[Rfam]
RNA sequence: AGGAUCUCGACAGGGUCGAUAUGAGAACACAUGUGCAAUCAACGGCUGUAAUGACGCCACAUCAUUAUAACACAUCUGUCUUUUCAUGUGUUCUCAGGUCACCCCUGCUGAGCUCCU
Numbered sequence: 001a002g003g004a005u006c007u008c009g010a011c012a013g014g015g016u017c018g019a020u021a022u023g024a025g026a027a028c029a030c031a032u033g034u035g036c037a038a039u040c041a042a043c044g045g046c047u048g049u050a051a052u053g054a055c056g057c058c059a060c061a062u063c064a065u066u067a068u069a070a071c072a073c074a075u076c077u078g079u080c081u082u083u084u085c086a087u088g089u090g091u092u093c094u095c096a097g098g099u100c101a102c103c104c105c106u107g108c109u110g111a112g113c114u115c116c117u
Stems, first nucleotide, its partner, number of pairs: 007111002011107004018100002023095010
Description
This 117-nucleotide RNA from Brassica rapa belongs to the Rfam family "MIR398 microRNA precursor family". For this family Rfam cites "Computational identification of plant microRNAs and their targets, including a stress-induced miRNA" (Jones-Rhoades and Bartel, Mol Cell, 2004). The family's consensus secondary structure was predicted with WAR. The match comes from Rfam's covariance-model search (73 bits). Its family is annotated with miRNA-mediated post-transcriptional gene silencing and RISC complex in the Gene Ontology.